[Rfam]
Overview
This 90-nucleotide sequence from Maledivibacter halophilus belongs to the Rfam family "RT-9 RNA". The base pairs follow the family's consensus structure, which is taken from published work. The source organism's lineage runs through Bacteria, Clostridia, Peptostreptococcales, Caminicellaceae and Maledivibacter.

RNA sequence: GACUGGUGCGUUUACGGAUUCACCAGCAUGACCCUAGAAUUUCAGGGGAGAGCCAAUCCUUCACCUUCAGGUGUAAACACAUGAACAAGU
Number, nucleotide and partner (000 for none) at each position: 001g000002a000003c026004u025005g024006g023007u022008g021009c000010g019011u018012u017013u000014a000015c000016g000017g012018a011019u010020u000021c008022a007023c006024c005025a004026g003027c000028a000029u000030g000031a000032c000033c000034c000035u000036a000037g000038a000039a000040u000041u000042u000043c000044a000045g000046g000047g000048g000049a000050g000051a000052g000053c000054c000055a000056a000057u000058c000059c000060u000061u000062c073063a072064c071065c070066u000067u000068c000069a000070g065071g064072u063073g062074u000075a000076a000077a000078c000079a000080c000081a000082u000083g000084a000085a000086c000087a000088a000089g000090u000